Shown here is a 118-nucleotide RNA sequence from Firmicutes bacterium CAG:552, a member of the family "FMN riboswitch aptamer (RFN element)".
[Rfam]
RNA sequence: UAAUCGCUUAGGGGUGGGGUGAGAUUCCCGACCGACGGUAUAGUCCGUGAAGCCGAUUUCGGCCCGAACAGGUGAGAUUCCUGUACCGACGGUAUAGUCCGGACGAUAUAAGCGAAAU
Numbered sequence: 001u002a003a004u005c006g007c008u009u010a011g012g013g014g015u016g017g018g019g020u021g022a023g024a025u026u027c028c029c030g031a032c033c034g035a036c037g038g039u040a041u042a043g044u045c046c047g048u049g050a051a052g053c054c055g056a057u058u059u060c061g062g063c064c065c066g067a068a069c070a071g072g073u074g075a076g077a078u079u080c081c082u083g084u085a086c087c088g089a090c091g092g093u094a095u096a097g098u099c100c101g102g103a104c105g106a107u108a109u110a111a112g113c114g115a116a117a118u
Base pairs, nucleotide, nucleotide: 004115005114006113007112008111009110010109017029018028019027031098032097033088034087035048036047037046038045043086044085052063053062068084069083070082071081072080090101091100092099
Taxonomically the source falls in Bacillota (Bacteria, Bacillati). The family's consensus secondary structure is taken from published work.